[Rfam]
RNA: THF (Tetrahydrofolate) riboswitch aptamer
RNA sequence: GUAGGGGUAGGAAGCCUUGCGUAACGGGCCUAUGGAACGGAAUGUGAACAUAGGCAGAAUGGUCCAUGACCGACGUUUGGUUUCCGCAUUCACCAUC
Numbered sequence: 001g002u003a004g005g006g007g008u009a010g011g012a013a014g015c016c017u018u019g020c021g022u023a024a025c026g027g028g029c030c031u032a033u034g035g036a037a038c039g040g041a042a043u044g045u046g047a048a049c050a051u052a053g054g055c056a057g058a059a060u061g062g063u064c065c066a067u068g069a070c071c072g073a074c075g076u077u078u079g080g081u082u083u084c085c086g087c088a089u090u091c092a093c094c095a096u097c
Stems, first nucleotide, its partner, number of pairs: 001097001004094002010085007019076004027055001029054006040091005060072004